A member of the RNA family "HNH endonuclease-associated RNA and ORF (HEARO) RNA" from Chromatium okenii, 237 nucleotides long. NCBI's taxonomy places the organism under Bacteria, Pseudomonadati, Gammaproteobacteria, Chromatiaceae, Chromatium. Rfam 15.1 lists 952 matches to the family in 249 species.
RNA sequence: AUCAACUACCUCGGUUUGUAAAAACCGAUAGCUCAUUAAAGAGCUGGGUUGAGCAGGGAAAGCGGUAGCCAAUCCGCUCCGUGUGCAAAAGGUCGUCAAGACUCACCAGCGAAUGCUUCCUUAGUUCGCUGCUCUGAAAGAUCAGGAUCAUGCUGGCGAAAGGCAAAGCGCCGAAGGUUUUGAUCGCUGCUGGCAACAGCAGGAGCCGUUUGCACACAUUUCCGAAGGGAGCGACGU
Numbered sequence: 001a002u003c004a005a006c007u008a009c010c011u012c013g014g015u016u017u018g019u020a021a022a023a024a025c026c027g028a029u030a031g032c033u034c035a036u037u038a039a040a041g042a043g044c045u046g047g048g049u050u051g052a053g054c055a056g057g058g059a060a061a062g063c064g065g066u067a068g069c070c071a072a073u074c075c076g077c078u079c080c081g082u083g084u085g086c087a088a089a090a091g092g093u094c095g096u097c098a099a100g101a102c103u104c105a106c107c108a109g110c111g112a113a114u115g116c117u118u119c120c121u122u123a124g125u126u127c128g129c130u131g132c133u134c135u136g137a138a139a140g141a142u143c144a145g146g147a148u149c150a151u152g153c154u155g156g157c158g159a160a161a162g163g164c165a166a167a168g169c170g171c172c173g174a175a176g177g178u179u180u181u182g183a184u185c186g187c188u189g190c191u192g193g194c195a196a197c198a199g200c201a202g203g204a205g206c207c208g209u210u211u212g213c214a215c216a217c218a219u220u221u222c223c224g225a226a227g228g229g230a231g232c233g234a235c236g237u
Stems, first nucleotide, its partner, number of pairs: 002052006010031002012027002015022002032043003056223005061078005081217009091207001103137002107131008117231006140185010154173005